[Rfam]
c-di-AMP riboswitch aptamer (ydaO/yuaA leader): a 222-nucleotide RNA from Paenibacillaceae bacterium GAS479.
RNA sequence: UUUCAUCAUUCGCUUAAUCUCCUCAUUCGGGGAGAGCGGGGGAACCAAUACAGUCCAUAUUGGCAAGCUAUACAUAUCCGUUUUCGGGUGUCACUUGUCAGGGCAAGCUGUACUUUUCCAGGGGUGAAUUCGCCGGGACCACGAGCAGGGUCCGCAGGCCGAUAGGGCAGCUCUCUUGUCCGAACCCGUCAGCUAACCUCGUCAGCGUAAAUAAGAGAGAUC
Number, nucleotide and partner (000 for none) at each position: 001u000002u000003u000004c000005a000006u000007c000008a000009u000010u000011c207012g206013c205014u204015u000016a000017a000018u035019c034020u033021c032022c031023u030024c000025a000026u000027u000028c000029g000030g023031g022032g021033a020034g019035a018036g202037c201038g200039g199040g198041g197042g000043a000044a000045c000046c121047a000048a000049u000050a000051c000052a000053g000054u000055c000056c000057a000058u000059a000060u000061u000062g000063g000064c000065a000066a000067g000068c000069u000070a000071u000072a000073c000074a000075u000076a000077u000078c000079c000080g000081u000082u000083u000084u000085c000086g000087g000088g000089u000090g000091u000092c000093a000094c000095u000096u000097g000098u000099c000100a000101g000102g000103g000104c000105a000106a000107g000108c000109u000110g000111u000112a000113c000114u000115u000116u000117u000118c000119c000120a000121g046122g187123g186124g185125u000126g000127a000128a000129u000130u162131c161132g160133c000134c000135g000136g000137g000138a000139c000140c000141a000142c000143g000144a000145g000146c000147a000148g000149g000150g000151u000152c000153c000154g000155c000156a000157g000158g000159c000160c132161g131162a130163u000164a000165g181166g180167g179168c178169a000170g000171c000172u000173c000174u000175c000176u000177u000178g168179u167180c166181c165182g000183a000184a000185c124186c123187c122188g000189u000190c000191a000192g000193c000194u000195a000196a000197c041198c040199u039200c038201g037202u036203c000204a014205g013206c012207g011208u000209a000210a000211a000212u000213a000214a000215g000216a000217g000218a000219g000220a000221u000222c000
Overview: For this family Rfam cites "New RNA motifs suggest an expanded scope for riboswitches in bacterial genetic control" (Barrick et al., Proc Natl Acad Sci U S A, 2004).